[Rfam]
RNA: FMN riboswitch aptamer (RFN element)
RNA sequence: AAAAACCUUCGGGGCAGGGUGAAAUUCCCGACCGGCGGUGAGCCAAAAGGCGAGCCCGCGAGCCCUCCAGGGGCUGAUCCGGUGAAAUUCCGGAGCCGACGGUAUAGUCCGGAUGGGAGAAGGUUGAU
Numbered sequence: 001a002a003a004a005a006c007c008u009u010c011g012g013g014g015c016a017g018g019g020u021g022a023a024a025u026u027c028c029c030g031a032c033c034g035g036c037g038g039u040g041a042g043c044c045a046a047a048a049g050g051c052g053a054g055c056c057c058g059c060g061a062g063c064c065c066u067c068c069a070g071g072g073g074c075u076g077a078u079c080c081g082g083u084g085a086a087a088u089u090c091c092g093g094a095g096c097c098g099a100c101g102g103u104a105u106a107g108u109c110c111g112g113a114u115g116g117g118a119g120a121a122g123g124u125u126g127a128u
Stems, first nucleotide, its partner, number of pairs: 004125007017029003031108002033098002035059004054096002062074003078094005100111003